[Rfam]
RNA sequence: UUGCAUGUUUUGGCCCUGGGCCAUGAUUGGCCACUCCAUUUCUGUAGAGAGGGCGAGUACAAACAUGCUACAUUAACAGUUGUGGAGUUAACAGGGCCACCAGUCUAUCAAGGCCAGACUGAGUUGGUAGUAUAAUACUCCAACAUAC
Dot-bracket structure: ..((((((...................((.((.((............)).)).)).......))))))...............((((........((..(((((((.........)))))).)...)).........)))).......
Rfam assigns this 148-nucleotide RNA from Sparus aurata to the family "Small nucleolar RNA U109". For this family Rfam cites "A novel experimental approach for systematic identification of box H/ACA snoRNAs from eukaryotes" (Gu et al., Nucleic Acids Res, 2005). The family's consensus secondary structure was predicted with WAR. Rfam classes the family as an H/ACA-box small nucleolar RNA. The source organism's lineage runs through Eukaryota, Opisthokonta, Actinopterygii, Actinopteri and Sparus. Rfam links the family to the GO terms RNA processing and nucleolus. The match comes from Rfam's covariance-model search (57 bits).